RNA sequence: CGGGGGAACGCAGGCUCCCCGUCAGACGGCCACCGUCCAAGGACUGC
Numbered sequence: 001c002g003g004g005g006g007a008a009c010g011c012a013g014g015c016u017c018c019c020c021g022u023c024a025g026a027c028g029g030c031c032a033c034c035g036u037c038c039a040a041g042g043a044c045u046g047c
Stems, first nucleotide, its partner, number of pairs: 001021006010047004025037005